The family of this 37-nucleotide RNA sequence from Salmonella enterica is "JUMPstart RNA". The source organism's lineage runs through Bacteria, Gammaproteobacteria, Enterobacterales, Salmonella and Salmonella enterica. It is annotated as a cis-regulatory element.

RNA sequence: GUGCUCUGGUUGCUGUAAGGCCAGGGGCGGUAGCGUG
Numbered sequence: 001g002u003g004c005u006c007u008g009g010u011u012g013c014u015g016u017a018a019g020g021c022c023a024g025g026g027g028c029g030g031u032a033g034c035g036u037g
Base pairs, nucleotide, nucleotide: 006024007023008022009021010020